bZIP non canonical Hac1/Xbp1 intron: a 75-nucleotide RNA from Zymoseptoria tritici.
[Rfam]
RNA sequence: UGCCGCUCGACCCGACACAACAUUCUGCAGCAAUGUUGUGCGACCUGCAGUGUCGGUCCAGCCUCAAGAGCAGCA
Numbered sequence: 001u002g003c004c005g006c007u008c009g010a011c012c013c014g015a016c017a018c019a020a021c022a023u024u025c026u027g028c029a030g031c032a033a034u035g036u037u038g039u040g041c042g043a044c045c046u047g048c049a050g051u052g053u054c055g056g057u058c059c060a061g062c063c064u065c066a067a068g069a070g071c072a073g074c075a
Stems, first nucleotide, its partner, number of pairs: 001075003005071003009058004019037006042054003
About this RNA
For this family Rfam cites "Conserved RNA structures in the non-canonical Hac1/Xbp1 intron" (Hooks and Griffiths-Jones, RNA Biol, 2011). From the family's description: bZIP intron RNA is a non-canonical intron that was first reported in HAC1 gene in yeast and XBP1 gene in Metazoa. Pairs were carried over by alignment from the consensus structure, which was predicted with RNAfold.